[Rfam]
RNA sequence: CUACCUUAAACUAAUGAGUAAGGAAAAUAACAAGCUUGGGAUGAUGCCUGGUUCCUCACUACUCAUGUGAGAAGAAUUUUUGUAUGGAUAAAGAUCACCCCCUGAAGGACUCACCUACUUGCAUGAGAUCUCUAGGUGCAGUGAUUUGUCCA
Numbered sequence: 001c002u003a004c005c006u007u008a009a010a011c012u013a014a015u016g017a018g019u020a021a022g023g024a025a026a027a028u029a030a031c032a033a034g035c036u037u038g039g040g041a042u043g044a045u046g047c048c049u050g051g052u053u054c055c056u057c058a059c060u061a062c063u064c065a066u067g068u069g070a071g072a073a074g075a076a077u078u079u080u081u082g083u084a085u086g087g088a089u090a091a092a093g094a095u096c097a098c099c100c101c102c103u104g105a106a107g108g109a110c111u112c113a114c115c116u117a118c119u120u121g122c123a124u125g126a127g128a129u130c131u132c133u134a135g136g137u138g139c140a141g142u143g144a145u146u147u148g149u150c151c152a
Stems, first nucleotide, its partner, number of pairs: 004023005033053004038048002055071005085152005092147007101136002104133001106131003110127004
Dot-bracket structure: ...(((((..........))))).........((((.((.......)).)))).(((((.......))))).............(((((..(((((((..((.(.(((.((((..........)))).))).).))....))))))))))))
About this RNA:
A member of the RNA family "U12 minor spliceosomal RNA" from Leptobrachium leishanense, 152 nucleotides long. Rfam links the family to the GO terms U12 snRNP, mRNA branch site recognition and pre-mRNA branch point binding. The family's RNA type in Rfam is spliceosomal small nuclear RNA.